The family of this 78-nucleotide RNA sequence from Trinickia fusca is "Burkholderia sRNA 25". The organism belongs to Trinickia, within Bacteria. Rfam describes the family as follows. Identified by RNA-seq, RACE and Northern blot. Strongly expressed in biofilm. The base pairs follow the family's consensus structure, which was predicted with RNAfold. On this family, see Sass et al., Sci Rep 2017: "Identification of small RNAs abundant in Burkholderia cenocepacia biofilms reveal putative regulators with a potential role in carbon and iron metabolism".
RNA sequence: UCUGCCUUUCAAGCAGACUUUUUCAUCUGAAAAAGAGUCUCCAGACCUUGGCGCGGCUUCCUGCCGCGCUUUUUUUAU
Numbered sequence: 001u002c003u004g005c006c007u008u009u010c011a012a013g014c015a016g017a018c019u020u021u022u023u024c025a026u027c028u029g030a031a032a033a034a035g036a037g038u039c040u041c042c043a044g045a046c047c048u049u050g051g052c053g054c055g056g057c058u059u060c061c062u063g064c065c066g067c068g069c070u071u072u073u074u075u076u077a078u
Base pairs, nucleotide, nucleotide: 001017002016003015004014005013007011018035019034020033021032022031023030024029050070051069052068053067054066055065056064057063